The record is a 60-nucleotide RNA from Bifidobacterium stellenboschense, which matches "msiK RNA" in Rfam.
The family's RNA type in Rfam is cis-regulatory element.
It scores 59 bits against the family's covariance model.
[Rfam]
RNA sequence: CCGAAUAAUCCCUUUACAACGGAUCGUGAGGCACGUACCUGCCUCUGAAAGGAUUGAACA
Numbered sequence: 001c002c003g004a005a006u007a008a009u010c011c012c013u014u015u016a017c018a019a020c021g022g023a024u025c026g027u028g029a030g031g032c033a034c035g036u037a038c039c040u041g042c043c044u045c046u047g048a049a050a051g052g053a054u055u056g057a058a059c060a
Base pairs, nucleotide, nucleotide: 010052011051013049014048015047016046028045029044030043031042032041033040